Small nucleolar RNA snoR111: a 128-nucleotide RNA sequence from Mikania micrantha. NCBI's taxonomy places the organism under Eukaryota, Euphyllophyta, Spermatophyta, Eupatorieae, Mikania.
[Rfam]
RNA sequence: AUAAACUUUUGAUAGACGUUUACUGAUUGUCUCAUCAAUUUGAAAGCAGGAGGAUAUAGUAAAGAUGGCGAGAUAUCGUUUCAGUCGUCAUGUUUCCGAUUGACGAUCUGAUUGUUGCUCGUCCACAC
Numbered sequence: 001a002u003a004a005a006c007u008u009u010u011g012a013u014a015g016a017c018g019u020u021u022a023c024u025g026a027u028u029g030u031c032u033c034a035u036c037a038a039u040u041u042g043a044a045a046g047c048a049g050g051a052g053g054a055u056a057u058a059g060u061a062a063a064g065a066u067g068g069c070g071a072g073a074u075a076u077c078g079u080u081u082c083a084g085u086c087g088u089c090a091u092g093u094u095u096c097c098g099a100u101u102g103a104c105g106a107u108c109u110g111a112u113u114g115u116u117g118c119u120c121g122u123c124c125a126c127a128c
Stems, first nucleotide, its partner, number of pairs: 009038003014032005067124002069121004075112004084107007093098001
The match comes from Rfam's covariance-model search (76 bits).